[Rfam]
RNA sequence: CGCGCCUUGUCGCCGAAUCCGGCGCGUGCGCAACAACGCACCAAAGGAACCGGGGAACCACCACAUGGGGUGAAUCGGACAGUCGGCAGCAUCCGCCGGCCGCCCGUAGGAGACCUUCCUGCUCCGAACCCGUCAGCUAACCCGGUAGGCGAGGGAAGGAAAGGAG
Numbered sequence: 001c002g003c004g005c006c007u008u009g010u011c012g013c014c015g016a017a018u019c020c021g022g023c024g025c026g027u028g029c030g031c032a033a034c035a036a037c038g039c040a041c042c043a044a045a046g047g048a049a050c051c052g053g054g055g056a057a058c059c060a061c062c063a064c065a066u067g068g069g070g071u072g073a074a075u076c077g078g079a080c081a082g083u084c085g086g087c088a089g090c091a092u093c094c095g096c097c098g099g100c101c102g103c104c105c106g107u108a109g110g111a112g113a114c115c116u117u118c119c120u121g122c123u124c125c126g127a128a129c130c131c132g133u134c135a136g137c138u139a140a141c142c143c144g145g146u147a148g149g150c151g152a153g154g155g156a157a158g159g160a161a162a163g164g165a166g
Base pairs, nucleotide, nucleotide: 011151012150013149014148018048019047020046049146050145051144052143053142054141059067060066068131069130070129076106077105078104109125110124111123112122